Background: Qrr RNA: a 106-nucleotide sequence from Vibrio eleionomae. The family's consensus secondary structure is taken from published work. From the family's description: This family represents a set of small RNAs (the Qrr RNAs) that are thought to be involved in the regulation of quorum sensing in Vibrio species. It is believed that these RNAs, guided by a protein, Hfq, can mediate the destabilisation of the quorum-sensing master regulators LuxR/HapR mRNAs. The source organism's lineage runs through Bacteria, Pseudomonadati, Pseudomonadota, Gammaproteobacteria and Vibrio. Gene Ontology term of the family: quorum sensing.
RNA sequence: CGACCCUUAUUAAGCCGAGGGUCACCUAGCCAACUGACGUUGUUAGUGAAUAAAAUUUGUUCACAAGUAUAUAAGCCAAUCUUGAUUUACGGUUGGCUCUUUUUUU
Numbered sequence: 001c002g003a004c005c006c007u008u009a010u011u012a013a014g015c016c017g018a019g020g021g022u023c024a025c026c027u028a029g030c031c032a033a034c035u036g037a038c039g040u041u042g043u044u045a046g047u048g049a050a051u052a053a054a055a056u057u058u059g060u061u062c063a064c065a066a067g068u069a070u071a072u073a074a075g076c077c078a079a080u081c082u083u084g085a086u087u088u089a090c091g092g093u094u095g096g097c098u099c100u101u102u103u104u105u106u
Base pairs, nucleotide, nucleotide: 002023003022004021005020006019040074041073042072043071046064047063048062049061050060051059052058076096077095078094079093080092081091083089